[Rfam]
RNA sequence: UGUAGCUGCUGGGCCCUGGCCUCCAGCCGAGCCGAUGCCGACGCGUCUUCCCCCGCGCCGGACCGGUCCGGAUGGGGACCAGGACCCAGCAGCCCGAGCAG
Numbered sequence: 001u002g003u004a005g006c007u008g009c010u011g012g013g014c015c016c017u018g019g020c021c022u023c024c025a026g027c028c029g030a031g032c033c034g035a036u037g038c039c040g041a042c043g044c045g046u047c048u049u050c051c052c053c054c055g056c057g058c059c060g061g062a063c064c065g066g067u068c069c070g071g072a073u074g075g076g077g078a079c080c081a082g083g084a085c086c087c088a089g090c091a092g093c094c095c096g097a098g099c100a101g
Stems, first nucleotide, its partner, number of pairs: 010088004015083002018080002021077005027071003031067004038061003042057003
RNA: mraW RNA